[Rfam]
RNA: Singlet oxygen resistance RNA X
RNA sequence: ACCGACUGAGUGUCCGGUCUAUGACACUCACCUCCCUGUUGGACUUUGCCGGGCCUAAGUGCCCGGCUUUUUUU
Numbered sequence: 001a002c003c004g005a006c007u008g009a010g011u012g013u014c015c016g017g018u019c020u021a022u023g024a025c026a027c028u029c030a031c032c033u034c035c036c037u038g039u040u041g042g043a044c045u046u047u048g049c050c051g052g053g054c055c056u057a058a059g060u061g062c063c064c065g066g067c068u069u070u071u072u073u074u
Stems, first nucleotide, its partner, number of pairs: 008029007048067007